FMN riboswitch aptamer (RFN element): a 148-nucleotide RNA sequence from bacteria symbiont BFo2 of Frankliniella occidentalis. The RFN element is a highly conserved domain that is found frequently in the 5'-untranslated regions of prokaryotic mRNAs that encode for flavin mononucleotide (FMN) biosynthesis and transport proteins. Taxonomically the source falls in Enterobacterales (Bacteria, Pseudomonadati, Pseudomonadota, Gammaproteobacteria).
[Rfam]
RNA sequence: GCUUAUUCUCAGGGCGGGGCGCAAUUCCCCACCGGCGGUAAAUCAGUUUUCUGAAAGCCCGCGAGCGCUUUAGCGAGUUUGCUAAAGGUCAGCAGAUCCGGUGUAAAUCCGGGGCCGACGGUUAUAGUCCGGACGGGAGAGGGUAAAA
Numbered sequence: 001g002c003u004u005a006u007u008c009u010c011a012g013g014g015c016g017g018g019g020c021g022c023a024a025u026u027c028c029c030c031a032c033c034g035g036c037g038g039u040a041a042a043u044c045a046g047u048u049u050u051c052u053g054a055a056a057g058c059c060c061g062c063g064a065g066c067g068c069u070u071u072a073g074c075g076a077g078u079u080u081g082c083u084a085a086a087g088g089u090c091a092g093c094a095g096a097u098c099c100g101g102u103g104u105a106a107a108u109c110c111g112g113g114g115c116c117g118a119c120g121g122u123u124a125u126a127g128u129c130c131g132g133a134c135g136g137g138a139g140a141g142g143g144u145a146a147a148a
Stems, first nucleotide, its partner, number of pairs: 003146008017029003031128002033117002035062004057115002065093002097113005119131003
Pairs were carried over by alignment from the consensus structure, which is taken from published work.